M-box riboswitch aptamer (ykoK leader): a 172-nucleotide sequence from Enterococcus casseliflavus. On this family, see Barrick et al., Proc Natl Acad Sci U S A 2004: "New RNA motifs suggest an expanded scope for riboswitches in bacterial genetic control". Lineage of the source: Bacteria > Bacillati > Bacillota > Enterococcus > Enterococcus casseliflavus.
[Rfam]
Nucleotides: 172
Stems, first nucleotide, its partner, number of pairs: 005168002008165003011159002013096001015155003020149003025145005031139002039114005045076004055066004083105003089099003116133005
Number, partner (000 for none) and nucleotide at each position: 001000a002000c003000a004000a005168a006167u007000a008165a009164u010163u011159g012158u013096u014000a015155g016154g017153u018000g019000a020149g021148g022147c023000u024000c025145c026144u027143a028142u029141a030000u031139g032138g033000a034000c035000a036000c037000a038000a039114g040113c041112u042111g043110c044000u045076g046075c047074c048073g049000c050000a051000a052000a053000a054000g055066c056065a057064u058063c059000g060000a061000g062000a063058g064057a065056u066055g067000c068000u069000u070000a071000g072000u073048u074047g075046g076045u077000a078000g079000g080000a081000c082000a083105g084104g085103u086000c087000u088000a089099a090098u091097c092000g093000u094000g095000a096013a097091g098090g099089u100000u101000a102000a103085a104084c105083c106000c107000a108000a109000a110043g111042c112041a113040g114039c115000u116133g117132a118131u119130a120129g121000c122000a123000a124000a125000u126000u127000u128000g129120c130119u131118a132117u133116c134000u135000a136000c137000g138032c139031c140000c141029u142028a143027u144026a145025g146000u147022g148021c149020u150000a151000a152000a153017g154016c155015u156000c157000u158012a159011c160000a161000a162000u163010g164009a165008u166000c167006a168005u169000g170000a171000g172000u